RNA sequence: GAGAUACCCUUAUAGGGAAGGACUUGCUUCAGUGGGGCUUUUGUGCUCACUGAGUCUGCACCUUGAGUGUGUCAUU
Numbered sequence: 001g002a003g004a005u006a007c008c009c010u011u012a013u014a015g016g017g018a019a020g021g022a023c024u025u026g027c028u029u030c031a032g033u034g035g036g037g038c039u040u041u042u043g044u045g046c047u048c049a050c051u052g053a054g055u056c057u058g059c060a061c062c063u064u065g066a067g068u069g070u071g072u073c074a075u076u
Stems, first nucleotide, its partner, number of pairs: 001075001003073005009067004015061001017059001019057001021056003029053008037044002